[Rfam]
RNA sequence: ACGGACCUUCGGGGCAGGGUGAAAUUCCCGACCGGCGGUGAAGGUUCUUUCGGAACCUCAGCCCGCGACUCGCGGAUUGCCGAUGGAUGGCAGCCCGCGACUGAUUUGGUGCAAUUCCAAAGCCGACGGUACAGUCCGGAUGGGAGAAGGUCAAA
Numbered sequence: 001a002c003g004g005a006c007c008u009u010c011g012g013g014g015c016a017g018g019g020u021g022a023a024a025u026u027c028c029c030g031a032c033c034g035g036c037g038g039u040g041a042a043g044g045u046u047c048u049u050u051c052g053g054a055a056c057c058u059c060a061g062c063c064c065g066c067g068a069c070u071c072g073c074g075g076a077u078u079g080c081c082g083a084u085g086g087a088u089g090g091c092a093g094c095c096c097g098c099g100a101c102u103g104a105u106u107u108g109g110u111g112c113a114a115u116u117c118c119a120a121a122g123c124c125g126a127c128g129g130u131a132c133a134g135u136c137c138g139g140a141u142g143g144g145a146g147a148a149g150g151u152c153a154a155a
Stems, first nucleotide, its partner, number of pairs: 004152007017029003031135002033125002035066004061123002070100006105121005127138003